[Rfam]
RNA sequence: UUUUCUAAAUCGCUGAAACCGUUUGGUGCGGGGGAACCACGAAGAUGGAUUGAUGUUGAAUCCUAGGGGUGAAUCCUUUUAAAGGCAGGGCUACUCAAGGCCCGAAUCCGACAGCUAACUCCGUAAGCGUUAUAUGAGAAGGAAU
Numbered sequence: 001u002u003u004u005c006u007a008a009a010u011c012g013c014u015g016a017a018a019c020c021g022u023u024u025g026g027u028g029c030g031g032g033g034g035a036a037c038c039a040c041g042a043a044g045a046u047g048g049a050u051u052g053a054u055g056u057u058g059a060a061u062c063c064u065a066g067g068g069g070u071g072a073a074u075c076c077u078u079u080u081a082a083a084g085g086c087a088g089g090g091c092u093a094c095u096c097a098a099g100g101c102c103c104g105a106a107u108c109c110g111a112c113a114g115c116u117a118a119c120u121c122c123g124u125a126a127g128c129g130u131u132a133u134a135u136g137a138g139a140a141g142g143a144a145u
Stems, first nucleotide, its partner, number of pairs: 011129004018027003028124006038066001067109003075085004088103004
Description: c-di-AMP riboswitch aptamer (ydaO/yuaA leader): a 145-nucleotide RNA sequence from Mesobacillus foraminis. Rfam links the family to the GO terms regulation of gene expression and cyclic-di-AMP binding. The match comes from Rfam's covariance-model search (96 bits). The pairing is the family consensus, mapped onto this sequence.